[Rfam]
RNA sequence: AUGUUCCCUAGAGUUCCUCUGAGCACUUCAUUAAGGAAAUAUUUUUUGCUCUUACUGAAGCGUUUGGGGGAACUCUUGGGUUCAU
Numbered sequence: 001a002u003g004u005u006c007c008c009u010a011g012a013g014u015u016c017c018u019c020u021g022a023g024c025a026c027u028u029c030a031u032u033a034a035g036g037a038a039a040u041a042u043u044u045u046u047u048g049c050u051c052u053u054a055c056u057g058a059a060g061c062g063u064u065u066g067g068g069g070g071a072a073c074u075c076u077u078g079g080g081u082u083c084a085u
Stems, first nucleotide, its partner, number of pairs: 006080003011075010022065002024062001026060005032054004